[Rfam]
A member of the RNA family "M-box riboswitch aptamer (ykoK leader)" from Vagococcus penaei, 173 nucleotides long. M-box riboswitch, also know as ykoK leader is described as a metaloregulatory RNA that sense divalent metals and function as a genetic control element of genes related to divalent metal transport in bacteria. Rfam links the family to the GO terms regulation of gene expression and response to magnesium ion.
RNA sequence: UUUAAAGAUUGUUAGGUGAGGCUCCUAUACAAACAUAGGCUACUGCCCAAAAAUGUCGAGAGACGCCAAUGGGUAUAACAGGAAUUGCCGAUUUAAGGCUCUUCUUAACGUAGCUAAAGCAAUUAUUGCUUUUACGUUGUAUAGUGCUAAAACUCAACGAAUGAAUCAAACAU
Numbered sequence: 001u002u003u004a005a006a007g008a009u010u011g012u013u014a015g016g017u018g019a020g021g022c023u024c025c026u027a028u029a030c031a032a033a034c035a036u037a038g039g040c041u042a043c044u045g046c047c048c049a050a051a052a053a054u055g056u057c058g059a060g061a062g063a064c065g066c067c068a069a070u071g072g073g074u075a076u077a078a079c080a081g082g083a084a085u086u087g088c089c090g091a092u093u094u095a096a097g098g099c100u101c102u103u104c105u106u107a108a109c110g111u112a113g114c115u116a117a118a119g120c121a122a123u124u125a126u127u128g129c130u131u132u133u134a135c136g137u138u139g140u141a142u143a144g145u146g147c148u149a150a151a152a153c154u155c156a157a158c159g160a161a162u163g164a165a166u167c168a169a170a171c172a173u
Stems, first nucleotide, its partner, number of pairs: 007167004011158002013096001015154003020148003025144008039114005045074005054065004081105004087099003116132005

The literature on the family includes a 2004 paper in Proc Natl Acad Sci U S A by Barrick et al., "New RNA motifs suggest an expanded scope for riboswitches in bacterial genetic control".
Lineage of the source: Bacteria > Bacilli > Lactobacillales > Enterococcaceae > Vagococcus.